RNA sequence: GAAAAAGUUUUCUAGGGUUCCGUAACAAUAUGGUUAGUCUGGACCGAGAGAAAACUCAUAGCAAUUUUAGCUAUGUCACGGAAGGAUAAAAGCCUGGGAGAU
Numbered sequence: 001g002a003a004a005a006a007g008u009u010u011u012c013u014a015g016g017g018u019u020c021c022g023u024a025a026c027a028a029u030a031u032g033g034u035u036a037g038u039c040u041g042g043a044c045c046g047a048g049a050g051a052a053a054a055c056u057c058a059u060a061g062c063a064a065u066u067u068u069a070g071c072u073a074u075g076u077c078a079c080g081g082a083a084g085g086a087u088a089a090a091a092g093c094c095u096g097g098g099a100g101a102u
Stems, first nucleotide, its partner, number of pairs: 007055006015045002020042002022039001023036004057075006077097001079100001083095003

Source information:
The record is a 102-nucleotide sequence from Pseudogracilibacillus auburnensis, which matches "Guanidine-I riboswitch aptamer" in Rfam. Rfam describes the family as follows. This family represents a conserved RNA structure found upstream of the ykkC and yxkD genes in Bacillus subtilis and related genes in other bacteria. The function of this family is unclear although it has been suggested that it may function to switch on efflux pumps and detoxification systems in response to harmful environmental molecules. The match comes from Rfam's covariance-model search (85 bits). The base pairs follow the family's consensus structure.